Notes
This 88-nucleotide sequence from Artemisia annua belongs to the Rfam family "Small nucleolar RNA Z159/U59". It scores 55 bits against the family's covariance model. NCBI's taxonomy places the organism under Eukaryota, Viridiplantae, Embryophyta, Asteraceae, Artemisia. Rfam classes the family as a C/D-box small nucleolar RNA. The base pairs follow the family's consensus structure, which was predicted with PFOLD.

RNA sequence: UAAGCUUAUGAUGAUCAAACAAAAAUAACUUUCGUUCUUCUGAUAUAAUCCAUGUUGAAAGCUUUUUGGAGACCUGAACUGAAGCUAC
Numbered sequence: 001u002a003a004g005c006u007u008a009u010g011a012u013g014a015u016c017a018a019a020c021a022a023a024a025a026u027a028a029c030u031u032u033c034g035u036u037c038u039u040c041u042g043a044u045a046u047a048a049u050c051c052a053u054g055u056u057g058a059a060a061g062c063u064u065u066u067u068g069g070a071g072a073c074c075u076g077a078a079c080u081g082a083a084g085c086u087a088c
Base pairs, nucleotide, nucleotide: 003086004085005084006083